c-di-AMP riboswitch aptamer (ydaO/yuaA leader): a 213-nucleotide sequence.

[Rfam]
RNA sequence: ACACCGACUGCGCCGAACUCCAUCCGUUGGUGCGCGGGGACAACGAGAGACAACUCGGAUGGAGGCGGGGGACCCACCGGUCCACCGACAUACAGGACCAGGAACCUUUCGCGGUUCCUUGGGGUGAAGCCGUCGCCUUUCGACGACGCCGGCCGGGCGACCUCUCCAGCCCGAACCCGACAGCUGACCUCGUGGGCGCUUAAGAGAGGACCA
Numbered sequence: 001a002c003a004c005c006g007a008c009u010g011c012g013c014c015g016a017a018c019u020c021c022a023u024c025c026g027u028u029g030g031u032g033c034g035c036g037g038g039g040a041c042a043a044c045g046a047g048a049g050a051c052a053a054c055u056c057g058g059a060u061g062g063a064g065g066c067g068g069g070g071g072a073c074c075c076a077c078c079g080g081u082c083c084a085c086c087g088a089c090a091u092a093c094a095g096g097a098c099c100a101g102g103a104a105c106c107u108u109u110c111g112c113g114g115u116u117c118c119u120u121g122g123g124g125u126g127a128a129g130c131c132g133u134c135g136c137c138u139u140u141c142g143a144c145g146a147c148g149c150c151g152g153c154c155g156g157g158c159g160a161c162c163u164c165u166c167c168a169g170c171c172c173g174a175a176c177c178c179g180a181c182a183g184c185u186g187a188c189c190u191c192g193u194g195g196g197c198g199c200u201u202a203a204g205a206g207a208g209g210a211c212c213a
Stems, first nucleotide, its partner, number of pairs: 011198004018064009065193006075121002122178003130152003155172004
From the family's description: This family represents a conserved RNA structure found upstream of the ydaO and yuaA genes in Bacillus subtilis and related genes in other bacteria.